[Rfam]
RNA sequence: AGUGAGACCAAGCUGGGUGGACAAUUUCCUGGCCAUUAGCCAGGAACAGAGGUCCUGUAGUUUGCCACCUUAAUGAGGGCCUGCC
Numbered sequence: 001a002g003u004g005a006g007a008c009c010a011a012g013c014u015g016g017g018u019g020g021a022c023a024a025u026u027u028c029c030u031g032g033c034c035a036u037u038a039g040c041c042a043g044g045a046a047c048a049g050a051g052g053u054c055c056u057g058u059a060g061u062u063u064g065c066c067a068c069c070u071u072a073a074u075g076a077g078g079g080c081c082u083g084c085c
Stems, first nucleotide, its partner, number of pairs: 002084003006080001008078002012074001014072004018067002022064003026060002032053003036049002